[Rfam]
RNA: L17-Actino-Proteobacteria ribosomal protein leader
RNA sequence: GGGGCUACGAGUGGUGGCCCCCUGACGCCGGUACCUGACACGGCCGGUGCAG
Numbered sequence: 001g002g003g004g005c006u007a008c009g010a011g012u013g014g015u016g017g018c019c020c021c022c023u024g025a026c027g028c029c030g031g032u033a034c035c036u037g038a039c040a041c042g043g044c045c046g047g048u049g050c051a052g
Stems, first nucleotide, its partner, number of pairs: 001021008022052003026049007